[Rfam]
RNA sequence: CCAGAGGGCCGGGCGACCGCGUGGGAACUUCCCACGAGGAAAGUCCGGGCUCCACGGAAACGGCGGUGCCGGGUAACGCCCGGCGGGGGUGACCCCAGGGAAAGUGCCACAGAGAGCAGACGGCCCGGUUUCGACCGGGUCACGGUGAAAGGGUGCGGUAAGAGCGCACCGCGGGACCGGUAACGGUCGCGGCAUGGCAAACCCCACCGGGAGCAAGACCGAAUAGGGACGGCAUAAGGGCUGCGUUCCGGCCCGUCGUCCGGGUUGGUUGCUUGAGGCGGCGUGCGAGCGUCGCCCUAGAGGAAUGGUCGCCCAGUCCCGCAAGGGAUGGACAGAACCCGGCUUACAGGCCCUCUGGCAUU
Numbered sequence: 001c002c003a004g005a006g007g008g009c010c011g012g013g014c015g016a017c018c019g020c021g022u023g024g025g026a027a028c029u030u031c032c033c034a035c036g037a038g039g040a041a042a043g044u045c046c047g048g049g050c051u052c053c054a055c056g057g058a059a060a061c062g063g064c065g066g067u068g069c070c071g072g073g074u075a076a077c078g079c080c081c082g083g084c085g086g087g088g089g090u091g092a093c094c095c096c097a098g099g100g101a102a103a104g105u106g107c108c109a110c111a112g113a114g115a116g117c118a119g120a121c122g123g124c125c126c127g128g129u130u131u132c133g134a135c136c137g138g139g140u141c142a143c144g145g146u147g148a149a150a151g152g153g154u155g156c157g158g159u160a161a162g163a164g165c166g167c168a169c170c171g172c173g174g175g176a177c178c179g180g181u182a183a184c185g186g187u188c189g190c191g192g193c194a195u196g197g198c199a200a201a202c203c204c205c206a207c208c209g210g211g212a213g214c215a216a217g218a219c220c221g222a223a224u225a226g227g228g229a230c231g232g233c234a235u236a237a238g239g240g241c242u243g244c245g246u247u248c249c250g251g252c253c254c255g256u257c258g259u260c261c262g263g264g265u266u267g268g269u270u271g272c273u274u275g276a277g278g279c280g281g282c283g284u285g286c287g288a289g290c291g292u293c294g295c296c297c298u299a300g301a302g303g304a305a306u307g308g309u310c311g312c313c314c315a316g317u318c319c320c321g322c323a324a325g326g327g328a329u330g331g332a333c334a335g336a337a338c339c340c341g342g343c344u345u346a347c348a349g350g351c352c353c354u355c356u357g358g359c360a361u362u
Stems, first nucleotide, its partner, number of pairs: 001358010011347001012313007020036007041345003045342005050213004060247001064209005069083005084098001085096004099204002104202002106198003121144002123140007152170006171193001172191002175188005217270004227261006238254005277296008
This 362-nucleotide RNA sequence from Stakelama pacifica belongs to the Rfam family "Bacterial RNase P class A". Rfam classes the family as a ribozyme. It scores 305 bits against the family's covariance model.